[Rfam]
RNA sequence: UACUCAUCCAGAGAGGUGGAGGGACCGGCCCUUUGAAACCUCGGCAACCGGCCUGAGAGCCAGGUGCCAAUUCCGGCAGAUUUCCUGUGAACUUCACAGGCGUCUGGAAGAUGAGGC
Numbered sequence: 001u002a003c004u005c006a007u008c009c010a011g012a013g014a015g016g017u018g019g020a021g022g023g024a025c026c027g028g029c030c031c032u033u034u035g036a037a038a039c040c041u042c043g044g045c046a047a048c049c050g051g052c053c054u055g056a057g058a059g060c061c062a063g064g065u066g067c068c069a070a071u072u073c074c075g076g077c078a079g080a081u082u083u084c085c086u087g088u089g090a091a092c093u094u095c096a097c098a099g100g101c102g103u104c105u106g107g108a109a110g111a112u113g114a115g116g117c
Stems, first nucleotide, its partner, number of pairs: 003115006013042005021031003025076004043068004048064002050061003072109001077106005

Description: The family of this 117-nucleotide sequence from Anaerolinea thermolimosa is "SAM riboswitch aptamer (S box leader)". Rfam's curators write: The SAM riboswitch is found upstream of a number of genes which code for proteins involved in methionine or cysteine biosynthesis in Gram-positive bacteria.